Source information:
Shown here is a 116-nucleotide RNA sequence, a member of the family "Twister_sister_ribozyme".
RNA sequence: GCAAAGCCCAAGGCCCGGUCUAUCGUCUGCCUGUGUUCUGCCACAGGCAGCGGCAGACUACGACCCGUGUAAGCCGGGUGCACCCCGCAAGGGGUGCGGCGCUCACAGCUUUAGCU
Numbered sequence: 001g002c003a004a005a006g007c008c009c010a011a012g013g014c015c016c017g018g019u020c021u022a023u024c025g026u027c028u029g030c031c032u033g034u035g036u037u038c039u040g041c042c043a044c045a046g047g048c049a050g051c052g053g054c055a056g057a058c059u060a061c062g063a064c065c066c067g068u069g070u071a072a073g074c075c076g077g078g079u080g081c082a083c084c085c086c087g088c089a090a091g092g093g094g095u096g097c098g099g100c101g102c103u104c105a106c107a108g109c110u111u112u113a114g115c116u
Stems, first nucleotide, its partner, number of pairs: 004111004013100003016073001018058003063079004080097006
Gene Ontology term of the family: catalytic activity. The family's consensus secondary structure is taken from published work. The literature on the family includes a 2015 paper in Nat Chem Biol by Weinberg et al., "New classes of self-cleaving ribozymes revealed by comparative genomics analysis".